[Rfam]
RNA: APC internal ribosome entry site (IRES)
RNA sequence: AGCCUUCCUCUUACAGAAAAUUUUUCCAUGCAGACUGAUAUGACCAGAAGACA
Dot-bracket structure: .(.((((....(((((..................))).))......)))).).